[Rfam]
RNA sequence: AAAUCCUUUAAGUAUCUGUCCAGAGAGGCGGACAAGGAGUUUCACAGCCAAGACUAGGUUUUUUCCCAUGCCUUCGUUUUACUGAAGUCUCCUUGUAUAAAGGAGACUUUUUUUCUA
Numbered sequence: 001a002a003a004u005c006c007u008u009u010a011a012g013u014a015u016c017u018g019u020c021c022a023g024a025g026a027g028g029c030g031g032a033c034a035a036g037g038a039g040u041u042u043c044a045c046a047g048c049c050a051a052g053a054c055u056a057g058g059u060u061u062u063u064u065c066c067c068a069u070g071c072c073u074u075c076g077u078u079u080u081a082c083u084g085a086a087g088u089c090u091c092c093u094u095g096u097a098u099a100a101a102g103g104a105g106a107c108u109u110u111u112u113u114u115c116u117a
Stems, first nucleotide, its partner, number of pairs: 004038005015032006046078003050074003054070001057067002084110011